[Rfam]
Nucleotides: 070
Stems, first nucleotide, its partner, number of pairs: 010037004016070007023033002042059007
Number, partner (000 for none) and nucleotide at each position: 001000a002000a003000a004000g005000u006000u007000c008000a009000a010037g011036a012035u013034u014000g015000c016070a017069g018068c019067a020066g021065a022064a023033g024032c025000u026000c027000u028000c029000a030000g031000u032024g033023u034013g035012g036011u037010c038000c039000u040000g041000u042059c043058a044057g045056a046055u047054u048053c049000c050000a051000a052000u053048g054047a055046a056045u057044c058043u059042g060000a061000a062000a063000a064022u065021u066020c067019u068018g069017c070016u